[Rfam]
RNA sequence: GCCGACGUCCUGGGGGAGUAGUUUCCGGUGAGCCCGCCUCACCGGGCAUGCGUCAACACACUUGGUCCGCAGACCAUGGCGCAUGCAACCGGUACCGGCCAGAUUCCAGCCCGUACCCGGUC
Numbered sequence: 001g002c003c004g005a006c007g008u009c010c011u012g013g014g015g016g017a018g019u020a021g022u023u024u025c026c027g028g029u030g031a032g033c034c035c036g037c038c039u040c041a042c043c044g045g046g047c048a049u050g051c052g053u054c055a056a057c058a059c060a061c062u063u064g065g066u067c068c069g070c071a072g073a074c075c076a077u078g079g080c081g082c083a084u085g086c087a088a089c090c091g092g093u094a095c096c097g098g099c100c101a102g103a104u105u106c107c108a109g110c111c112c113g114u115a116c117c118c119g120g121u122c
Stems, first nucleotide, its partner, number of pairs: 026044003046086010063076005

Rfam assigns this 122-nucleotide RNA from Pseudomonas sp. ABC1 to the family "Manganese Mn2+ riboswitch aptamer (yybP-ykoY)". A search with the family's covariance model found it, with a score of 59 bits.